[Rfam]
RNA sequence: GUUUACAGCCAGUUUUGUUGGUUUGCUCUCAGCUGCUGCCAGUCUCUGCUGUGCAAAUCCAUGCAAAGCUCUCUGUUCCU
Numbered sequence: 001g002u003u004u005a006c007a008g009c010c011a012g013u014u015u016u017g018u019u020g021g022u023u024u025g026c027u028c029u030c031a032g033c034u035g036c037u038g039c040c041a042g043u044c045u046c047u048g049c050u051g052u053g054c055a056a057a058u059c060c061a062u063g064c065a066a067a068g069c070u071c072u073c074u075g076u077u078c079c080u
Base pairs, nucleotide, nucleotide: 005076006075007074008073011070012069013068014067015066016065017064018063020060021059022057023056024055025054026053028051031050032049033048
The record is an 80-nucleotide sequence from Parambassis ranga, which matches "mir-19 microRNA precursor family" in Rfam. It scores 52 bits against the family's covariance model. Lineage of the source: Eukaryota > Craniata > Vertebrata > Actinopterygii > Parambassis. Its Rfam clan is "mir-19 clan". A reference for the family is Lagos-Quintana et al. (2001), "Identification of novel genes coding for small expressed RNAs", Science. Rfam links the family to the GO terms miRNA-mediated post-transcriptional gene silencing and RISC complex. Rfam 15.1 lists 2,337 matches to the family in 651 species.